[Rfam]
RNA sequence: UGAUGUGGUAGUUUUCUUUCUGGUCCAUUUGUGAAGUAUCAAAUUGGCCUGAUUCUACCACAUAGAUUAUGCAGGAGCAAGCAGUCUUGGGGAUGGUCAGGCCUCAUCUGAGCCUUUCCCCCUUCAGGUAUUGCUUUAGCUCCUACAUGC
Numbered sequence: 001u002g003a004u005g006u007g008g009u010a011g012u013u014u015u016c017u018u019u020c021u022g023g024u025c026c027a028u029u030u031g032u033g034a035a036g037u038a039u040c041a042a043a044u045u046g047g048c049c050u051g052a053u054u055c056u057a058c059c060a061c062a063u064a065g066a067u068u069a070u071g072c073a074g075g076a077g078c079a080a081g082c083a084g085u086c087u088u089g090g091g092g093a094u095g096g097u098c099a100g101g102c103c104u105c106a107u108c109u110g111a112g113c114c115u116u117u118c119c120c121c122c123u124u125c126a127g128g129u130a131u132u133g134c135u136u137u138a139g140c141u142c143c144u145a146c147a148u149g150c
Stems, first nucleotide, its partner, number of pairs: 005061007022049003027044005074143005080087002106135001108133001
Dot-bracket structure: ....(((((((..........(((..(((((........)))))..))).....)))))))............(((((.((....))..................(.(........................).)...))))).......
Overview: The record is a 150-nucleotide RNA sequence from Monodelphis domestica, which matches "Small nucleolar RNA SNORA12" in Rfam. The literature on the family includes a 2005 paper in Nucleic Acids Res by Gu et al., "A novel experimental approach for systematic identification of box H/ACA snoRNAs from eukaryotes". The base pairs follow the family's consensus structure, which was predicted with RNAalifold. The sequence is in the family's curated seed alignment. Rfam links the family to the GO terms RNA processing and nucleolus. The family's RNA type in Rfam is H/ACA-box small nucleolar RNA.